[Rfam]
The family of this 130-nucleotide RNA from Fukomys damarensis is "Small nucleolar RNA SNORA64/SNORA10 family". Its family is annotated with RNA processing and nucleolus in the Gene Ontology. About the family: This family belongs to the H/ACA class of small nucleolar RNAs (snoRNAs) which act as guides in the the modification of uridines to pseudouridines. This family includes the human snoRNAs U64 and ACA10 and mouse MBI-29. The literature on the family includes a 1999 paper in EMBO J by Narayanan et al., "Nucleolar localization signals of box H/ACA small nucleolar RNAs". The match comes from Rfam's covariance-model search (78 bits).

RNA sequence: ACUCUCUUCACUCUGCAUGGUUGCACUAGUUGUGGUGUGACUUUCGUACCGGAGAGAGAGAGAAAGGAGCUCUUCAGGACCUUGAAUUGGCCUCCUGGUGGCCUUUCUUUCCUUGAGGGGCACAACAGGC
Numbered sequence: 001a002c003u004c005u006c007u008u009c010a011c012u013c014u015g016c017a018u019g020g021u022u023g024c025a026c027u028a029g030u031u032g033u034g035g036u037g038u039g040a041c042u043u044u045c046g047u048a049c050c051g052g053a054g055a056g057a058g059a060g061a062g063a064a065a066g067g068a069g070c071u072c073u074u075c076a077g078g079a080c081c082u083u084g085a086a087u088u089g090g091c092c093u094c095c096u097g098g099u100g101g102c103c104u105u106u107c108u109u110u111c112c113u114u115g116a117g118g119g120g121c122a123c124a125a126c127a128g129g130c
Stems, first nucleotide, its partner, number of pairs: 002062007011054005019042008070120005076114003084108001086106001089103004